[Rfam]
RNA sequence: ACCCUCUGGUUUCCUUUCCUGUCAGAUCCAAACUCUGGUCUUGGUGGUUGUAAAAGGAGGGAAAGUGUCUCACAGCCCUGUAGCCUGGCCUAUAGCACGUGGGCUAGUUUCAAACAGGA
Number, nucleotide and partner (000 for none) at each position: 001a000002c000003c060004c059005u058006c057007u056008g000009g000010u000011u000012u000013c000014c000015u000016u000017u000018c000019c047020u046021g045022u044023c043024a000025g040026a039027u038028c037029c000030a000031a000032a000033c000034u000035c000036u000037g028038g027039u026040c025041u000042u000043g023044g022045u021046g020047g019048u000049u000050g000051u000052a000053a000054a000055a000056g007057g006058a005059g004060g003061g000062a000063a000064a000065g000066u000067g000068u000069c000070u000071c000072a000073c000074a105075g104076c103077c102078c101079u097080g096081u095082a000083g000084c000085c000086u000087g000088g000089c000090c000091u000092a000093u000094a000095g081096c080097a079098c000099g000100u000101g078102g077103g076104c075105u074106a000107g000108u000109u000110u000111c000112a000113a000114a000115c000116a000117g000118g000119a000
RNA: Small nucleolar RNA SNORA61